This 73-nucleotide RNA sequence from Drosophila navojoa belongs to the Rfam family "mir-287 microRNA precursor family". The literature on the family includes a 2003 paper in Genome Biol by Lai et al., "Computational identification of Drosophila microRNA genes". The organism belongs to mojavensis species complex, within Eukaryota.
[Rfam]
RNA sequence: GUUCAUGUAGUUUGAAAUUUUGCACACAUUUACAAUAAUUGUAAAUGUGUUGAAAAUCGUUUGCACAACUGUG
Dot-bracket structure: .........((...(((((((..((((((((((((...))))))))))))..)))))...)))).........